[Rfam]
RNA sequence: UCCGAUAUGGUGUAGUGGCCAACAUGAUGCCCUCUCAACUAUUGAGAGGUUAGGCAUAGCCCCGAGUUCGAUUCUCGGUUUCGGAA
Numbered sequence: 001u002c003c004g005a006u007a008u009g010g011u012g013u014a015g016u017g018g019c020c021a022a023c024a025u026g027a028u029g030c031c032c033u034c035u036c037a038a039c040u041a042u043u044g045a046g047a048g049g050u051u052a053g054g055c056a057u058a059g060c061c062c063c064g065a066g067u068u069c070g071a072u073u074c075u076c077g078g079u080u081u082c083g084g085a086a
Stems, first nucleotide, its partner, number of pairs: 001085005007079001010025004027057005062078005
A member of the RNA family "tRNA" from Colletotrichum incanum, 86 nucleotides long.
It is annotated as a transfer RNA.
From the family's description: Transfer RNA (tRNA) molecules are approximately 80 nucleotides in length.
NCBI's taxonomy places the organism under Eukaryota, Pezizomycotina, Hypocreomycetidae, Glomerellaceae, Colletotrichum spaethianum species complex.